Rfam assigns this 83-nucleotide sequence from Caloenas nicobarica to the family "Small nucleolar RNA SNORD103/SNORD85". The match comes from Rfam's covariance-model search (70 bits). The pairing is the family consensus, mapped onto this sequence. For this family Rfam cites "RNomics: an experimental approach that identifies 201 candidates for novel, small, non-messenger RNAs in mouse" (Huttenhofer et al., EMBO J, 2001). The family's RNA type in Rfam is C/D-box small nucleolar RNA.

RNA sequence: UCUGGCGAUGAUGACACACUUGCCCUCACUGAGAACGCUGUUCGGUAAUGAGCCUCACACGCGCUCAGAUGAGCUGAGCCAGA
Numbered sequence: 001u002c003u004g005g006c007g008a009u010g011a012u013g014a015c016a017c018a019c020u021u022g023c024c025c026u027c028a029c030u031g032a033g034a035a036c037g038c039u040g041u042u043c044g045g046u047a048a049u050g051a052g053c054c055u056c057a058c059a060c061g062c063g064c065u066c067a068g069a070u071g072a073g074c075u076g077a078g079c080c081a082g083a
Stems, first nucleotide, its partner, number of pairs: 001083006